[Rfam]
RNA sequence: UCGACUGUACUUGAACAGGAUUCAUACUUCAGUUGGUAAACCCUCGUCAGUAUUCUCCAAUACUUGACAAGCUCCUCAUGUCAGACGAAGACUGAAGCUCACCUAGUCUGAGCCGGAAAUCUGCGAUUCUCCUAUGACGCCUAGUCAGGGAUUUCGCUUGAUGAUGGCCCCCCGUCGACAUUCCAAGUCGGGGCUGGACGGCUAGGUGACGUUCUGAUGGCUA
Numbered sequence: 001u002c003g004a005c006u007g008u009a010c011u012u013g014a015a016c017a018g019g020a021u022u023c024a025u026a027c028u029u030c031a032g033u034u035g036g037u038a039a040a041c042c043c044u045c046g047u048c049a050g051u052a053u054u055c056u057c058c059a060a061u062a063c064u065u066g067a068c069a070a071g072c073u074c075c076u077c078a079u080g081u082c083a084g085a086c087g088a089a090g091a092c093u094g095a096a097g098c099u100c101a102c103c104u105a106g107u108c109u110g111a112g113c114c115g116g117a118a119a120u121c122u123g124c125g126a127u128u129c130u131c132c133u134a135u136g137a138c139g140c141c142u143a144g145u146c147a148g149g150g151a152u153u154u155c156g157c158u159u160g161a162u163g164a165u166g167g168c169c170c171c172c173c174g175u176c177g178a179c180a181u182u183c184c185a186a187g188u189c190g191g192g193g194c195u196g197g198a199c200g201g202c203u204a205g206g207u208g209a210c211g212u213u214c215u216g217a218u219g220g221c222u223a
Base pairs, nucleotide, nucleotide: 001039002036003034005032006031007030013027015025018022044070046068047067049064050063051062052061053060054059080221081220082219083218099209100208101207102206103205104204105203106202107201108200112168113167114166123157124156125155126154130150131149132148135147136146137145138144173193175191176190177189178188179187